RNA sequence: AGGUCGAGAGUGCUGCCUAUAAGCGGUGCGCAGAACGAAUGGUUCUCUCGGCUC
Numbered sequence: 001a002g003g004u005c006g007a008g009a010g011u012g013c014u015g016c017c018u019a020u021a022a023g024c025g026g027u028g029c030g031c032a033g034a035a036c037g038a039a040u041g042g043u044u045c046u047c048u049c050g051g052c053u054c
Stems, first nucleotide, its partner, number of pairs: 002053007010029007032046005
Dot-bracket structure: .(((((((.(((((((......)))))))..(((((.....)))))))))))).
Rfam assigns this 54-nucleotide sequence to the family "DUF3800-VI RNA". It is one of the family's seed sequences. By type it is a cis-regulatory element. The family's consensus secondary structure is taken from published work.